The family of this 134-nucleotide RNA from Chinchilla lanigera is "Small nucleolar RNA SNORA75". Rfam's curators write: U23 belongs to the H/ACA class of snoRNAs. snoRNAs bind a number of proteins (including dyskerin, Gar1p and Nop10p in the case of the H/ACA class) to form snoRNP complexes. This class are thought to guide the sites of modification of uridines to pseudouridines by forming direct base pairing interactions with substrate RNAs. Targets include ribosomal and spliceosomal RNAs as well as the Trypanosoma spliced leader RNA (SL RNA) as possibly other, still unknown cellular RNAs. By type it is an H/ACA-box small nucleolar RNA. The family has 6 seed sequences and 414 matches in Rfam 15.1. The base pairs follow the family's consensus structure, which was predicted with PFOLD.
[Rfam]
RNA sequence: GCCUUCUCAUUGAGCUCCUUUCUGUCACUGGUGGCAGUCAUGGAUUCGCACGAGAAGAACAGCACUUCACAGAGCCAGCGUUGCUUUAGCCUCUGUUUUGGAGGAGGUGGGCGUGGCUGUUCUGUGAGACAUGU
Numbered sequence: 001g002c003c004u005u006c007u008c009a010u011u012g013a014g015c016u017c018c019u020u021u022c023u024g025u026c027a028c029u030g031g032u033g034g035c036a037g038u039c040a041u042g043g044a045u046u047c048g049c050a051c052g053a054g055a056a057g058a059a060c061a062g063c064a065c066u067u068c069a070c071a072g073a074g075c076c077a078g079c080g081u082u083g084c085u086u087u088a089g090c091c092u093c094u095g096u097u098u099u100g101g102a103g104g105a106g107g108u109g110g111g112c113g114u115g116g117c118u119g120u121u122c123u124g125u126g127a128g129a130c131a132u133g134u
Stems, first nucleotide, its partner, number of pairs: 003057006014049002016044003022037005067127006090107005